[Rfam]
Nucleotides: 074
Stems, first nucleotide, its partner, number of pairs: 001074005
Number, partner (000 for none) and nucleotide at each position: 001074g002073u003072g004071u005070g006000a007000a008000u009000g010000a011000u012000g013000a014000a015000a016000g017000a018000u019000g020000u021000u022000u023000g024000g025000a026000u027000u028000c029000c030000c031000a032000c033000u034000g035000g036000u037000g038000u039000a040000u041000g042000c043000a044000g045000u046000g047000a048000u049000a050000u051000u052000a053000c054000a055000a056000c057000c058000a059000g060000c061000u062000a063000c064000u065000u066000c067000a068000u069000a070005c071004a072003c073002a074001c